[Rfam]
RNA sequence: CCUUGGGAGUGCUAAGACAAUACGAGUAGAGAUUUAUCUCCAAAGUAAGCACGUUGAAUAAGGAA
Numbered sequence: 001c002c003u004u005g006g007g008a009g010u011g012c013u014a015a016g017a018c019a020a021u022a023c024g025a026g027u028a029g030a031g032a033u034u035u036a037u038c039u040c041c042a043a044a045g046u047a048a049g050c051a052c053g054u055u056g057a058a059u060a061a062g063g064a065a
Stems, first nucleotide, its partner, number of pairs: 001063005009052005021047003029040003

RAGATH-18 RNA: a 65-nucleotide sequence. Pairs were carried over by alignment from the consensus structure, which is taken from published work. The sequence is in the family's curated seed alignment.